[Rfam]
RNA: Small nucleolar RNA SNORA30/SNORA37 family
Nucleotides: 129
Base pairs, nucleotide, nucleotide: 003058004057005056006055007054008053013046014045015044017042018041019040020039022036023035024034025033069122070121071119072118073117074116076114077113079112080111083108084107085106086105087104088102089101090100
Number, partner (000 for none) and nucleotide at each position: 001000c002000u003058a004057g005056c006055a007054c008053u009000u010000u011000c012000a013046c014045a015044g016000g017042u018041c019040c020039u021000c022036c023035c024034c025033u026000a027000g028000g029000c030000a031000g032000u033025g034024g035023g036022g037000u038000c039020a040019g041018g042017a043000u044015u045014u046013g047000g048000u049000a050000g051000c052000u053008g054007g055006u056005g057004c058003u059000g060000a061000g062000a063000g064000a065000a066000a067000a068000c069122c070121c071119u072118u073117g074116a075000u076114u077113g078000c079112a080111u081000c082000c083108u084107u085106g086105c087104c088102c089101u090100g091000a092000c093000u094000g095000u096000a097000u098000a099000a100090c101089a102088g103000u104087g105086g106085c107084a108083a109000c110000u111080g112079u113077c114076a115000c116074u117073c118072a119071a120000u121070g122069g123000a124000a125000c126000a127000g128000a129000g